Notes: This 220-nucleotide RNA sequence from Nicotiana tabacum belongs to the Rfam family "Plant small nucleolar RNA U3". The source organism's lineage runs through Eukaryota, Streptophyta, Streptophytina, Euphyllophyta and Nicotiana. Gene Ontology terms of the family: RNA processing and nucleolus.
RNA sequence: ACGACCUUACUUGAACAGGAUCUGUUCUAUAGGCUCGUACCACUGUAUCCUUGAGUUUCUAAGGAGACAGGAAACCAAGUCUGGUUGAUGAGGCAUGGCCAAGGGACCAUAGCGUGAUUAACAGUCCCCGUUGGCCCCUUGUGGGUCUUGGUGCAGUAGAGGAUCGUUCUCAGUCCUGCUCUGCCAUGGCUGAGAUGAUCUCUUGGUUGUCUGACAGACU
Numbered sequence: 001a002c003g004a005c006c007u008u009a010c011u012u013g014a015a016c017a018g019g020a021u022c023u024g025u026u027c028u029a030u031a032g033g034c035u036c037g038u039a040c041c042a043c044u045g046u047a048u049c050c051u052u053g054a055g056u057u058u059c060u061a062a063g064g065a066g067a068c069a070g071g072a073a074a075c076c077a078a079g080u081c082u083g084g085u086u087g088a089u090g091a092g093g094c095a096u097g098g099c100c101a102a103g104g105g106a107c108c109a110u111a112g113c114g115u116g117a118u119u120a121a122c123a124g125u126c127c128c129c130g131u132u133g134g135c136c137c138c139u140u141g142u143g144g145g146u147c148u149u150g151g152u153g154c155a156g157u158a159g160a161g162g163a164u165c166g167u168u169c170u171c172a173g174u175c176c177u178g179c180u181c182u183g184c185c186a187u188g189g190c191u192g193a194g195a196u197g198a199u200c201u202c203u204u205g206g207u208u209g210u211c212u213g214a215c216a217g218a219c220u
Base pairs, nucleotide, nucleotide: 001038002037003035005033006032007031013027014026015025016024017023018022043070044069045068046067048065049064050063051062052061053060079219080218081217082216083215098207099206100205101204102203103202104201105200106199108197109196111168112167113166114165121157122156124154125153127151128150133147134146135145136144137143170193171192172191173190174189175188177186178185
The literature on the family includes a 1999 paper in Mol Cell Biol by Speckmann et al., "Nuclear retention elements of U3 small nucleolar RNA". About the family: Small nucleolar RNAs (snoRNAs) are involved in the processing and modification of rRNA in the nucleolus. There are two main classes of snoRNAs: the box C/D class, and the box H/ACA class. U3 snoRNA is a member of the box C/D class. Indeed, the box C/D element is a subset of the six short sequence elements found in all U3 snoRNAs, namely boxes A, A', B, C, C', and D. The U3 snoRNA secondary structure is characterised by a small 5' domain (with boxes A and A'), and a larger 3' domain (with boxes B, C, C', and D), the two domains being linked by a single-stranded hinge.